[Rfam]
Annotation:
Flavo-1 RNA: a 105-nucleotide sequence from Flavobacterium noncentrifugens. The match comes from Rfam's covariance-model search (72 bits). Lineage of the source: Bacteria > Bacteroidota > Flavobacteriia > Flavobacteriaceae > Flavobacterium.
RNA sequence: CCCUAGCCCUGAUUACAGUGGAAAUCCUUUUUGUUUUAUUGGCAUUUUUCUGUCAAAAACAGAACAUUCCAAACAAAAAGAUUGAAACGGAAAGCAGGAAAAAGC
Numbered sequence: 001c002c003c004u005a006g007c008c009c010u011g012a013u014u015a016c017a018g019u020g021g022a023a024a025u026c027c028u029u030u031u032u033g034u035u036u037u038a039u040u041g042g043c044a045u046u047u048u049u050c051u052g053u054c055a056a057a058a059a060c061a062g063a064a065c066a067u068u069c070c071a072a073a074c075a076a077a078a079a080g081a082u083u084g085a086a087a088c089g090g091a092a093a094g095c096a097g098g099a100a101a102a103a104g105c
Stems, first nucleotide, its partner, number of pairs: 009097003013093002018088002023083004029078008
Pairs were carried over by alignment from the consensus structure, which is taken from published work.